A member of the RNA family "Small nucleolar RNA SNORA40" from Jaculus jaculus, 126 nucleotides long. Rfam links the family to the GO terms nucleolus and RNA processing. Taxonomically the source falls in Jaculus (Eukaryota, Deuterostomia, Chordata, Dipodinae). The family's RNA type in Rfam is H/ACA-box small nucleolar RNA. Rfam's curators write: The snoRNA ACA 40 belongs to the H/ACA family of snoRNAs and guides the pseudouridylation of 28S rRNA subunit at position U4565. NB This family has a high threshold value to exclude a large number of closely related sequences that do not appear to have conserved H and ACA boxes, and may be pseudogenes. The literature on the family includes a 1997 paper in J Mol Biol by Ofengand and Bakin, "Mapping to nucleotide resolution of pseudouridine residues in large subunit ribosomal RNAs from representative eukaryotes, prokaryotes, archaebacteria, mitochondria and chloroplasts".
[Rfam]
RNA sequence: AGCACUUGUACGCGCCUUUGUUGAAUUGAUGGACAAAGUCUUAAAGACAGGUACAGAAAUAAAUCCUCCUUUGCAACCCAGAGCUCAUUGUUAAGUAUGAGUUUGAUACAUAUAAGAGGGAAUAUG
Dot-bracket structure: .(.((((((....(.((((((....(....).)))))).)......)))))).)........((.((..((((.....(((.((((((........))))))))).......))))..)).))...